Shown here is a 155-nucleotide RNA sequence from Pandoraea terrae, a member of the family "Group II catalytic intron D1-D4-7". The pairing is the family consensus, mapped onto this sequence. Group II introns are found in rRNA, tRNA and mRNA of organelles in fungi, plants and protists, and also in mRNA in bacteria. Taxonomically the source falls in Pandoraea (Bacteria, Pseudomonadati, Pseudomonadota, Burkholderiaceae). The family has 244 seed sequences and 1,296 matches in Rfam 15.1.
[Rfam]
RNA sequence: CCUGCUAUACGACUAGCAGUAGCCUAGGAAGACAUGCGUUGCUGGUAACGGCAGGGUGUGAAGCUCUUCCGACAACGUAUCCCCCGGAAGUUUCGGGCGUGUCGAUCCUGUGAAGGGUCGGUGCGGAUACUCCUAGCAGCAAGGGGGUAAAGGAG
Dot-bracket structure: .((((((......))))))........((((((((((.((((((....)))))).)))))....))))).............((((((...))))))((((......((....))......))))...((((((........)))))).......